[Rfam]
RNA sequence: UAAGUACACUAGGGGUGUUCUUUAGAAGAACUGAGAUAAGCUUUUGCAGCUUAAUCCCUUCGAACCUGUAAGUCAAAACUUGCGUAGGAAAGUGUGAAGAAGGACCC
Numbered sequence: 001u002a003a004g005u006a007c008a009c010u011a012g013g014g015g016u017g018u019u020c021u022u023u024a025g026a027a028g029a030a031c032u033g034a035g036a037u038a039a040g041c042u043u044u045u046g047c048a049g050c051u052u053a054a055u056c057c058c059u060u061c062g063a064a065c066c067u068g069u070a071a072g073u074c075a076a077a078a079c080u081u082g083c084g085u086a087g088g089a090a091a092g093u094g095u096g097a098a099g100a101a102g103g104a105c106c107c
Stems, first nucleotide, its partner, number of pairs: 006095005011059004016053001017031005038052005065088004069082004